[Rfam]
RNA sequence: GUGCAUCCAGUAUAAAUUAAACCUACGAAUUCGCUAAUUAUGAGUUGGGCGCUUUAACCAUUCAGCCAUAGAUGC
Numbered sequence: 001g002u003g004c005a006u007c008c009a010g011u012a013u014a015a016a017u018u019a020a021a022c023c024u025a026c027g028a029a030u031u032c033g034c035u036a037a038u039u040a041u042g043a044g045u046u047g048g049g050c051g052c053u054u055u056a057a058c059c060a061u062u063c064a065g066c067c068a069u070a071g072a073u074g075c
Base pairs, nucleotide, nucleotide: 003075004074005073006072007071010026011025012024040069041068042067044066045065046064047063048062049061051059
This 75-nucleotide sequence from Cannabis sativa belongs to the Rfam family "Plastid-ycf2 5UTR RNA". On this family, see Richter et al., Plant Commun 2023: "Retrograde signaling in plants: A critical review focusing on the GUN pathway and beyond". The base pairs follow the family's consensus structure, which was predicted with LocARNA. Lineage of the source: Eukaryota > Euphyllophyta > Spermatophyta > Cannabaceae > Cannabis. Plastid ycf2 is a non-coding RNA (ncRNA) recognised in plastids.